[Rfam]
The family of this 138-nucleotide RNA from Solanum commersonii is "Small nucleolar RNA snoR111". A reference for the family is Marker et al. (2002), "Experimental RNomics: identification of 140 candidates for small non-messenger RNAs in the plant Arabidopsis thaliana", Curr Biol. Rfam 15.1 lists 533 matches to the family in 223 species.

RNA sequence: CUGAUCGAAUGAUGAACAAUUUUUGUGGUGUGUUUCAUCAUUUUUAUAUGAAUUUACAGGAGGCAAAGUGAUAUCGGCGAGAUAUCGUUUCGAUCGUUAUUUUUUCCGGUUGACGAUUCGAUUGUUGCUCGACUACAU
Numbered sequence: 001c002u003g004a005u006c007g008a009a010u011g012a013u014g015a016a017c018a019a020u021u022u023u024u025g026u027g028g029u030g031u032g033u034u035u036c037a038u039c040a041u042u043u044u045u046a047u048a049u050g051a052a053u054u055u056a057c058a059g060g061a062g063g064c065a066a067a068g069u070g071a072u073a074u075c076g077g078c079g080a081g082a083u084a085u086c087g088u089u090u091c092g093a094u095c096g097u098u099a100u101u102u103u104u105u106c107c108g109g110u111u112g113a114c115g116a117u118u119c120g121a122u123u124g125u126u127g128c129u130c131g132a133c134u135a136c137a138u
Stems, first nucleotide, its partner, number of pairs: 004047002007044001009041008076133001078131004084122004093117007101109002
Dot-bracket structure: ...((.(.((((((((.................))))))))..).))............................(.((((..((((.....(((((((.((.....)).))))))).)))).....)))).).....
Rfam classes the family as an H/ACA-box small nucleolar RNA.